Shown here is a 93-nucleotide RNA sequence from Hibiscus syriacus, a member of the family "Small nucleolar RNA R44/J54/Z268 family". It is annotated as a C/D-box small nucleolar RNA.
RNA sequence: GAUGCAAGUGAUGAUAAAGAUAGACAGGGACAUCUGCACACCCUCGUUUGGGUGAUUGAUGACUGUCUUAAAUGGGAAUCUCUCUGAUGCAUU
Number, nucleotide and partner (000 for none) at each position: 001g000002a092003u091004g090005c089006a088007a000008g000009u000010g000011a000012u000013g000014a000015u000016a000017a000018a000019g000020a000021u000022a000023g000024a000025c000026a000027g000028g000029g000030a000031c000032a000033u000034c000035u000036g000037c000038a000039c000040a000041c000042c000043c000044u000045c000046g000047u000048u000049u000050g000051g000052g000053u000054g000055a000056u000057u000058g000059a000060u000061g000062a000063c000064u000065g000066u000067c000068u000069u000070a000071a000072a000073u000074g000075g000076g000077a000078a000079u000080c000081u000082c000083u000084c000085u000086g000087a000088u006089g005090c004091a003092u002093u000